[Rfam]
RNA sequence: GGCCUCCAGUGAUGGAGGUAUGCCCUGGGAGGCCAAUGACUGGACUGGGAUGUAUUCAUACUGUCUGAUGGGCU
Numbered sequence: 001g002g003c004c005u006c007c008a009g010u011g012a013u014g015g016a017g018g019u020a021u022g023c024c025c026u027g028g029g030a031g032g033c034c035a036a037u038g039a040c041u042g043g044a045c046u047g048g049g050a051u052g053u054a055u056u057c058a059u060a061c062u063g064u065c066u067g068a069u070g071g072g073c074u
Stems, first nucleotide, its partner, number of pairs: 002074001004072003011065005018059002020055004024049002027046002032041001
Shown here is a 74-nucleotide sequence from Microtus ochrogaster, a member of the family "Small nucleolar RNA ZL2". The literature on the family includes a 2013 paper in Genome Biol by Kishore et al., "Insights into snoRNA biogenesis and processing from PAR-CLIP of snoRNA core proteins and small RNA sequencing". Pairs were carried over by alignment from the consensus structure, which was predicted with RNAfold. Rfam classes the family as a C/D-box small nucleolar RNA. NCBI's taxonomy places the organism under Eukaryota, Euteleostomi, Theria, Euarchontoglires, Microtus.